Source information
A member of the RNA family "S15-Flavobacteria ribosomal protein leader" from Maribacter thermophilus, 65 nucleotides long. It is one of the family's seed sequences. For this family Rfam cites "Discovery of 20 novel ribosomal leader candidates in bacteria and archaea" (Eckert and Weinberg, BMC Microbiol, 2020).
[Rfam]
RNA sequence: UAUCUUUGCGCCCUGAUUGAAAAUCAAUCGGAUACAUAAAAAUCAUUUAAAACAAUAUUGGAAUG
Numbered sequence: 001u002a003u004c005u006u007u008g009c010g011c012c013c014u015g016a017u018u019g020a021a022a023a024u025c026a027a028u029c030g031g032a033u034a035c036a037u038a039a040a041a042a043u044c045a046u047u048u049a050a051a052a053c054a055a056u057a058u059u060g061g062a063a064u065g
Stems, first nucleotide, its partner, number of pairs: 014030006